[Rfam]
RNA sequence: AAGAAAGGGUACACGGGGGAUGCCUUGGCUCUCAGAGGCGAUGAAGGACGUGAUAAGCUGCGAUAAGCCGCGGGGAUCAGCAAAUAUGAAUUGAUCCGCGGAUUUCCGAAUGGGGAAACCUAACUAUUUGAAGAAUAGUUGCAUAAAUGCGCGAACCUGCUGAACUGAAACAUCUAAGUAAGCAGAGGAAGAGAAAACAACAGUGAUUUCCUGAGUAGUGGCGAGCGAAAGGGAAGAAGCCCAAACCUAAUAUGUUACGGCAUAUUAGGGGUUAUAGGACCACAACAUGAAUAUUAAAAUGAACCGGAACGGGGUGGGAAACCCGGCCAUAGAGCAUGAGAGCUGCGUACGGGUAAGUAAUAAUAGGAUAGUGGUAUCCUGAGUACCGCGAGGUCGGAGACGCCUUGUGGGAAUUUGCCGGCACCAUCCGGUAAGGCUAAAUACUCCUGAGAGACCGAUAGUGAACCAGUACCGUGAGGGAAAGGUGAAAAGAACCCCGAACAGGGGAGUGAAAUAGAACCUGAAACCGUGUACUUACAAG
Numbered sequence: 001a002a003g004a005a006a007g008g009g010u011a012c013a014c015g016g017g018g019g020a021u022g023c024c025u026u027g028g029c030u031c032u033c034a035g036a037g038g039c040g041a042u043g044a045a046g047g048a049c050g051u052g053a054u055a056a057g058c059u060g061c062g063a064u065a066a067g068c069c070g071c072g073g074g075g076a077u078c079a080g081c082a083a084a085u086a087u088g089a090a091u092u093g094a095u096c097c098g099c100g101g102a103u104u105u106c107c108g109a110a111u112g113g114g115g116a117a118a119c120c121u122a123a124c125u126a127u128u129u130g131a132a133g134a135a136u137a138g139u140u141g142c143a144u145a146a147a148u149g150c151g152c153g154a155a156c157c158u159g160c161u162g163a164a165c166u167g168a169a170a171c172a173u174c175u176a177a178g179u180a181a182g183c184a185g186a187g188g189a190a191g192a193g194a195a196a197a198c199a200a201c202a203g204u205g206a207u208u209u210c211c212u213g214a215g216u217a218g219u220g221g222c223g224a225g226c227g228a229a230a231g232g233g234a235a236g237a238a239g240c241c242c243a244a245a246c247c248u249a250a251u252a253u254g255u256u257a258c259g260g261c262a263u264a265u266u267a268g269g270g271g272u273u274a275u276a277g278g279a280c281c282a283c284a285a286c287a288u289g290a291a292u293a294u295u296a297a298a299a300u301g302a303a304c305c306g307g308a309a310c311g312g313g314g315u316g317g318g319a320a321a322c323c324c325g326g327c328c329a330u331a332g333a334g335c336a337u338g339a340g341a342g343c344u345g346c347g348u349a350c351g352g353g354u355a356a357g358u359a360a361u362a363a364u365a366g367g368a369u370a371g372u373g374g375u376a377u378c379c380u381g382a383g384u385a386c387c388g389c390g391a392g393g394u395c396g397g398a399g400a401c402g403c404c405u406u407g408u409g410g411g412a413a414u415u416u417g418c419c420g421g422c423a424c425c426a427u428c429c430g431g432u433a434a435g436g437c438u439a440a441a442u443a444c445u446c447c448u449g450a451g452a453g454a455c456c457g458a459u460a461g462u463g464a465a466c467c468a469g470u471a472c473c474g475u476g477a478g479g480g481a482a483a484g485g486u487g488a489a490a491a492g493a494a495c496c497c498c499g500a501a502c503a504g505g506g507g508a509g510u511g512a513a514a515u516a517g518a519a520c521c522u523g524a525a526a527c528c529g530u531g532u533a534c535u536u537a538c539a540a541g
Base pairs, nucleotide, nucleotide: 007536008535009534010533011532012531013530014529015528016527022521023485024484027456028455029453030452031451032450033449034448035447036445037444038152039151046107047106048105049062050061051060068101069100070099071098072097073096074095077089078088079087112121113120114119122140123139124138125137126136127135128134142149143148156187157185158184159183160182161181167174168173197204198203207441208235209234210233211232212231218226219225238438239437240436241435246269247268248267249266250265251264252263276380277379278378280374281373282372283371292365293364294363295362296361299358300357304352305351306350310325311324312323313322328332334346335345336344386410387409388408389407390406391405392404393403394402417432418431419430420429421428472479473478495507496506497505498504